[Rfam]
RNA sequence: UGUUUGGCAAGAGUGAUGAUUCAAUUAGAUGUGUGAAAAGGGAACUCCUUUUUGUGAACUUAAAAUUUUUGAGGCAUAAGUUUGUCUGACUUGCCCACA
Numbered sequence: 001u002g003u004u005u006g007g008c009a010a011g012a013g014u015g016a017u018g019a020u021u022c023a024a025u026u027a028g029a030u031g032u033g034u035g036a037a038a039a040g041g042g043a044a045c046u047c048c049u050u051u052u053u054g055u056g057a058a059c060u061u062a063a064a065a066u067u068u069u070u071g072a073g074g075c076a077u078a079a080g081u082u083u084g085u086c087u088g089a090c091u092u093g094c095c096c097a098c099a
Stems, first nucleotide, its partner, number of pairs: 001099003006095006
The family of this 99-nucleotide RNA from Rosa chinensis is "Small nucleolar RNA Z266". It is annotated as a C/D-box small nucleolar RNA. On this family, see Chen et al., Nucleic Acids Res 2003: "The high diversity of snoRNAs in plants: identification and comparative study of 120 snoRNA genes from Oryza sativa". A search with the family's covariance model found it, with a score of 73 bits. Lineage of the source: Eukaryota > rosids > fabids > Rosaceae > Rosa.